[Rfam]
Nucleotides: 147
Stems, first nucleotide, its partner, number of pairs: 004144007017029003031127002033116002035061004056114002064092002096112005118130003
Number, partner (000 for none) and nucleotide at each position: 001000c002000g003000a004144c005143g006142u007141c008140u009139u010138c011000a012000g013000g014000g015000c016000g017029g018028g019027g020000c021000g022000g023000a024000a025000u026000u027019c028018c029017c030000c031127a032126c033116c034115g035061g036060c037059g038058g039000u040000a041000g042000g043000u044000c045000c046000u047000u048000c049000g050000g051000g052000a053000c054000g055000a056114g057113c058038c059037c060036g061035c062000g063000a064092g065091c066000g067000c068000c069000u070000u071000c072000g073000c074000c075000g076000c077000a078000c079000g080000g081000c082000g083000g084000a085000g086000g087000g088000a089000c090000a091065g092064c093000a094000g095000a096112u097111c098110c099109g100108g101000u102000c103000g104000a105000a106000c107000g108100c109099c110098g111097g112096a113057g114056c115034c116033g117000a118130c119129g120128g121000u122000c123000a124000c125000a126032g127031u128120c129119c130118g131000g132000a133000u134000g135000a136000a137000a138010g139009a140008a141007g142006a143005c144004g145000g146000u147000u
Record summary: Shown here is a 147-nucleotide RNA sequence from Fulvimonas soli, a member of the family "FMN riboswitch aptamer (RFN element)". It scores 104 bits against the family's covariance model.